Rfam assigns this 99-nucleotide RNA sequence from Candidatus Palibaumannia cicadellinicola to the family "Bacterial small signal recognition particle RNA".
Taxonomically the source falls in Candidatus Palibaumannia cicadellinicola (Bacteria, Pseudomonadota, Gammaproteobacteria, Candidatus Palibaumannia).
It is annotated as a non-coding RNA gene.
The family's consensus secondary structure is taken from published work.
Nucleotides: 099
Base pairs, nucleotide, nucleotide: 004093005092006091007090008089010085011084012083013082014081020075021074022073023072024071026068027067028066029065030064036061037060038059039058044053045052046051
Number, partner (000 for none) and nucleotide at each position: 001000u002000u003000u004093u005092a006091g007090u008089g009000c010085u011084c012083u013082c014081g015000c016000c017000u018000a019000a020075u021074a022073u023072u024071u025000a026068c027067u028066u029065g030064u031000g032000a033000a034000a035000u036061c037060g038059a039058u040000c041000a042000g043000g044053u045052c046051u047000g048000g049000a050000a051046g052045g053044a054000a055000g056000c057000a058039g059038u060037c061036g062000u063000a064030g065029c066028a067027a068026g069000c070000u071024a072023a073022g074021u075020a076000g077000a078000a079000a080000a081014c082013g083012g084011g085010a086000a087000g088000u089008c090007g091006u092005u093004a094000a095000a096000a097000g098000g099000a